[Rfam]
Nucleotides: 080
Base pairs, nucleotide, nucleotide: 004077005076006075007074009072010071013067014066015065016064017063018062019061020060021059022058023057025055026054027053029052030051031050032049033048
Number, partner (000 for none) and nucleotide at each position: 001000c002000u003000c004077g005076c006075u007074g008000u009072g010071c011000u012000a013067a014066a015065g016064u017063g018062c019061u020060u021059a022058c023057a024000g025055u026054g027053c028000a029052g030051g031050u032049a033048g034000u035000u036000c037000c038000u039000c040000u041000g042000u043000u044000c045000a046000g047000c048033c049032u050031a051030c052029c053027g054026c055025a056000g057023u058022g059021u060020g061019a062018g063017c064016a065015c066014u067013u068000c069000u070000u071010g072009c073000a074007c075006a076005g077004c078000a079000g080000g

A member of the RNA family "mir-17 microRNA precursor family" from Lepisosteus oculatus, 80 nucleotides long. The family has 234 seed sequences and 4,687 matches in Rfam 15.1. Rfam's curators write: This family represents the microRNA (miRNA) precursor mir-17, family, which includes mir-20, mir-91, and mir-103. miRNAs are transcribed as ~70nt precursors (modelled here) and subsequently processed by the Dicer enzyme to give a ~22nt product. In this case the mature sequence comes from the 3' arm of the precursor. The extents of the hairpin precursors are not generally known and are estimated based on hairpin prediction.